[Rfam]
RNA sequence: GAGCCAGCUCAGCUCAGCCCAGCGGUUCCAUCGACCAAAGCAUUGCACAGAUCCCCUAAUCGCUUCCAGCGGUUUGAGACCCGCGGGCGCUGUCUGGCUUUUUA
Numbered sequence: 001g002a003g004c005c006a007g008c009u010c011a012g013c014u015c016a017g018c019c020c021a022g023c024g025g026u027u028c029c030a031u032c033g034a035c036c037a038a039a040g041c042a043u044u045g046c047a048c049a050g051a052u053c054c055c056c057u058a059a060u061c062g063c064u065u066c067c068a069g070c071g072g073u074u075u076g077a078g079a080c081c082c083g084c085g086g087g088c089g090c091u092g093u094c095u096g097g098c099u100u101u102u103u104a
Stems, first nucleotide, its partner, number of pairs: 002099006017088004022084004031077004
Vault RNA: a 104-nucleotide RNA from Podarcis muralis.
From the family's description: This family of RNAs are found as part of the enigmatic vault ribonucleoprotein complex. The complex consists of a major vault protein (MVP), two minor vault proteins (VPARP and TEP1), and several small untranslated RNA molecules. It has been suggested that the vault complex is involved in drug resistance.
For this family Rfam cites "Evolution of Vault RNAs" (Stadler et al., Mol Biol Evol, 2009).
The base pairs follow the family's consensus structure, which is taken from published work.
Lineage of the source: Eukaryota > Deuterostomia > Lacertibaenia > Lacertidae > Podarcis.